[Rfam]
RNA sequence: AGCAGGGGAGGCCGAACUCCGGUCUCGCGGCUCAUGAGGAAAGUCCCCCCACCGGCCGAACAGGUGACCGGGUGUAAGCCCGGAGUCGGAGACGGCUGGCUCUGGAACAGAAACGAGACCCCCCAUCCCGACCAAUGAGGUGUGUGACCCGCCCCGCGAGGGAAGGUAGUUAACCCGCCGAUGGGACGCGGUGACCCCGCGAAACGGGUGGGAAUGGCUGGAACGGCGAAUCCUCACCGGUGCAAGUCCGCGCGACAGGUAGUUCGGCCAUGGCGCGGACGCUUAGCCGAAUGUCGGGCCGAACAGAAGGGGGCUUACUCCCCUCAGCC
Numbered sequence: 001a002g003c004a005g006g007g008g009a010g011g012c013c014g015a016a017c018u019c020c021g022g023u024c025u026c027g028c029g030g031c032u033c034a035u036g037a038g039g040a041a042a043g044u045c046c047c048c049c050c051a052c053c054g055g056c057c058g059a060a061c062a063g064g065u066g067a068c069c070g071g072g073u074g075u076a077a078g079c080c081c082g083g084a085g086u087c088g089g090a091g092a093c094g095g096c097u098g099g100c101u102c103u104g105g106a107a108c109a110g111a112a113a114c115g116a117g118a119c120c121c122c123c124c125a126u127c128c129c130g131a132c133c134a135a136u137g138a139g140g141u142g143u144g145u146g147a148c149c150c151g152c153c154c155c156g157c158g159a160g161g162g163a164a165g166g167u168a169g170u171u172a173a174c175c176c177g178c179c180g181a182u183g184g185g186a187c188g189c190g191g192u193g194a195c196c197c198c199g200c201g202a203a204a205c206g207g208g209u210g211g212g213a214a215u216g217g218c219u220g221g222a223a224c225g226g227c228g229a230a231u232c233c234u235c236a237c238c239g240g241u242g243c244a245a246g247u248c249c250g251c252g253c254g255a256c257a258g259g260u261a262g263u264u265c266g267g268c269c270a271u272g273g274c275g276c277g278g279a280c281g282c283u284u285a286g287c288c289g290a291a292u293g294u295c296g297g298g299c300c301g302a303a304c305a306g307a308a309g310g311g312g313g314c315u316u317a318c319u320c321c322c323c324u325c326a327g328c329c
Stems, first nucleotide, its partner, number of pairs: 002328002005325001006323003009319002012297004020036002041316003045313005050242004055268006063238005068083005084097005098233002103229001105227001119217002122212007246280008
This 329-nucleotide RNA from uncultured archaeon A07HR60 belongs to the Rfam family "Archaeal RNase P". Ribonuclease P (RNase P) is a ubiquitous endoribonuclease, found in archaea, bacteria and eukarya as well as chloroplasts and mitochondria. Its best characterised activity is the generation of mature 5'-ends of tRNAs by cleaving the 5'-leader elements of precursor-tRNAs. Cellular RNase Ps are ribonucleoproteins. Rfam links the family to the GO terms tRNA processing, ribonuclease P activity and multimeric ribonuclease P complex. By type it is a ribozyme. Pairs were carried over by alignment from the consensus structure, which is taken from published work.